[Rfam]
RNA: Small nucleolar RNA SNORA70
Organism: Octodon degus
RNA sequence: UGGCAGUCAGUGAAGCCAACGGUGUUCAUUUGCUGGUGGGUACACAAUGUGCAGUGUCUACCAUUAGCAACCCCAUUGGUAGGGUGUUCAGGCUGUUUCUUGUACAGGCUGUCUGAAGGGGCCUUAGGGAUGCUG
Numbered sequence: 001u002g003g004c005a006g007u008c009a010g011u012g013a014a015g016c017c018a019a020c021g022g023u024g025u026u027c028a029u030u031u032g033c034u035g036g037u038g039g040g041u042a043c044a045c046a047a048u049g050u051g052c053a054g055u056g057u058c059u060a061c062c063a064u065u066a067g068c069a070a071c072c073c074c075a076u077u078g079g080u081a082g083g084g085u086g087u088u089c090a091g092g093c094u095g096u097u098u099c100u101u102g103u104a105c106a107g108g109c110u111g112u113c114u115g116a117a118g119g120g121g122c123c124u125u126a127g128g129g130a131u132g133c134u135g
Stems, first nucleotide, its partner, number of pairs: 003052003019048001022045001025042001027040001078123003089111003093107002